The family of this 179-nucleotide RNA sequence from Companilactobacillus allii is "Lysine riboswitch aptamer". The base pairs follow the family's consensus structure, which is taken from published work.

RNA sequence: CAAAACAAAAGAGGUCGCGGUUAACAUUAGUAAAUAAGGGAGUCACUGCAUGGCGUUGAACUUAUUGAAAGGGGAAAUCGCCGAAGCGUCGGAAUUGUAGGAUCCGAUGUGCUGGGACGUAUCAAUAAUAUGAUAUGGACUGUCGCAACAAAAAGUCGUUGCGGUGCGCUUAUGACAAU
Numbered sequence: 001c002a003a004a005a006c007a008a009a010a011g012a013g014g015u016c017g018c019g020g021u022u023a024a025c026a027u028u029a030g031u032a033a034a035u036a037a038g039g040g041a042g043u044c045a046c047u048g049c050a051u052g053g054c055g056u057u058g059a060a061c062u063u064a065u066u067g068a069a070a071g072g073g074g075a076a077a078u079c080g081c082c083g084a085a086g087c088g089u090c091g092g093a094a095u096u097g098u099a100g101g102a103u104c105c106g107a108u109g110u111g112c113u114g115g116g117a118c119g120u121a122u123c124a125a126u127a128a129u130a131u132g133a134u135a136u137g138g139a140c141u142g143u144c145g146c147a148a149c150a151a152a153a154a155g156u157c158g159u160u161g162c163g164g165u166g167c168g169c170u171u172a173u174g175a176c177a178a179u
Base pairs, nucleotide, nucleotide: 006174007173009171010170011169017081018080019079020078021077022076025073033066034065035064036063037062038061085113086112087111088108089107090106091105092104093103114141115140118137119136120135121134122133123132124131143164144163145162146161147160148159149158
Description
The match comes from Rfam's covariance-model search (98 bits).